The family of this 115-nucleotide RNA from Lepeophtheirus salmonis is "Potassium channel RNA editing signal".
The family's RNA type in Rfam is cis-regulatory element.
Rfam 15.1 lists 14,095 matches to the family in 1,000 species.
On this family, see Bhalla et al., Nat Struct Mol Biol 2004: "Control of human potassium channel inactivation by editing of a small mRNA hairpin".
[Rfam]
RNA sequence: GUAGGCUACGGAGAUAUAUCUCCUACAACUGGACUAGGGAAGAUCAUUGGCUCUAUGUGUGCCAUUUGCGGUGUUCUCGUCGUUUGCCCUUCCAAUUCCCAUCAUUGUGAAUAAU
Number, nucleotide and partner (000 for none) at each position: 001g115002u114003a000004g112005g000006c000007u109008a108009c107010g106011g105012a000013g103014a102015u101016a000017u000018a000019u000020c000021u095022c000023c000024u000025a000026c000027a000028a000029c000030u000031g000032g000033a000034c000035u000036a000037g077038g076039g075040a074041a000042g000043a000044u000045c000046a000047u000048u000049g063050g062051c061052u000053c000054u000055a000056u000057g000058u000059g000060u000061g051062c050063c049064a000065u000066u000067u000068g000069c000070g000071g000072u000073g000074u040075u039076c038077u037078c000079g000080u000081c000082g000083u000084u000085u000086g000087c000088c000089c000090u000091u000092c000093c000094a000095a021096u000097u000098c000099c000100c000101a015102u014103c013104a000105u011106u010107g009108u008109g007110a000111a000112u004113a000114a002115u001
It scores 76 bits against the family's covariance model.
Rfam describes the family as follows. This family represents a group of sequences related to the human potassium channel Kv1.1 hairpin element which directs the efficient modification of an adenosine to inosine by an adenosine deaminase acting on RNA (ADAR).
The base pairs follow the family's consensus structure, which is taken from published work.